[Rfam]
RNA sequence: AGGCGGGACACCCUUCCCCAACGAAGGGCGCACAUCUGGAAGGAUGGCGAAA
Numbered sequence: 001a002g003g004c005g006g007g008a009c010a011c012c013c014u015u016c017c018c019c020a021a022c023g024a025a026g027g028g029c030g031c032a033c034a035u036c037u038g039g040a041a042g043g044a045u046g047g048c049g050a051a052a
Stems, first nucleotide, its partner, number of pairs: 011028006033046005
A member of the RNA family "serC leader" from Methylocella silvestris, 52 nucleotides long. A search with the family's covariance model found it, with a score of 66 bits. By type it is a cis-regulatory leader. Pairs were carried over by alignment from the consensus structure. Rfam's curators write: This family is a putative regulatory RNA structure that is found upstream of the serC-serA operon in some alpha-proteobacteria. The final stem of the structure overlaps the ribosome binding site of the serC reading frame.